[Rfam]
RNA sequence: GAUGGAUCAAAUCCAAUCCAUUACUUAAUUUUUUUAUUUAUGGAUGGAUUGGAUGGAUCCAUUA
Number, nucleotide and partner (000 for none) at each position: 001g000002a000003u000004g060005g059006a058007u057008c056009a000010a000011a054012u053013c052014c051015a050016a049017u048018c047019c046020a045021u044022u043023a000024c000025u000026u000027a038028a037029u036030u000031u000032u000033u000034u000035u000036a029037u028038u027039u000040a000041u000042g000043g022044a021045u020046g019047g018048a017049u016050u015051g014052g013053a012054u011055g000056g008057a007058u006059c005060c004061a000062u000063u000064a000

Shown here is a 64-nucleotide RNA sequence from Trifolium medium, a member of the family "MIR5291 microRNA precursor family". The organism belongs to Trifolium, within Eukaryota. The match comes from Rfam's covariance-model search (72 bits). The family has 3 seed sequences and 168 matches in Rfam 15.1.